RNA sequence: CUAAAUAUUCGUUAGGUGAGGUUCCUAUACAGAUAAAUGCUGCUGCCCGGAAACAUCGAGAGAUGCCAAUGGGUCAACAGGUAUUACCGAAAUAAGGUUUUACUUAAUGUAGCUGGAGAUAAAGUGGUCCAAAGCUGUAUAGUGCUAAAACUCAACGAGUGAAGGGUUUU
Numbered sequence: 001c002u003a004a005a006u007a008u009u010c011g012u013u014a015g016g017u018g019a020g021g022u023u024c025c026u027a028u029a030c031a032g033a034u035a036a037a038u039g040c041u042g043c044u045g046c047c048c049g050g051a052a053a054c055a056u057c058g059a060g061a062g063a064u065g066c067c068a069a070u071g072g073g074u075c076a077a078c079a080g081g082u083a084u085u086a087c088c089g090a091a092a093u094a095a096g097g098u099u100u101u102a103c104u105u106a107a108u109g110u111a112g113c114u115g116g117a118g119a120u121a122a123a124g125u126g127g128u129c130c131a132a133a134g135c136u137g138u139a140u141a142g143u144g145c146u147a148a149a150a151c152u153c154a155a156c157g158a159g160u161g162a163a164g165g166g167u168u169u170u
Stems, first nucleotide, its partner, number of pairs: 006165001008163003011156002013095001015152003020146003025142008039113005045074005054065004080104004086098003115130003
A member of the RNA family "M-box riboswitch aptamer (ykoK leader)" from Ruminiclostridium cellulolyticum, 170 nucleotides long. M-box riboswitch, also know as ykoK leader is described as a metaloregulatory RNA that sense divalent metals and function as a genetic control element of genes related to divalent metal transport in bacteria. The literature on the family includes a 2004 paper in Proc Natl Acad Sci U S A by Barrick et al., "New RNA motifs suggest an expanded scope for riboswitches in bacterial genetic control". The source organism's lineage runs through Bacteria, Bacillati, Bacillota, Eubacteriales and Ruminiclostridium cellulolyticum.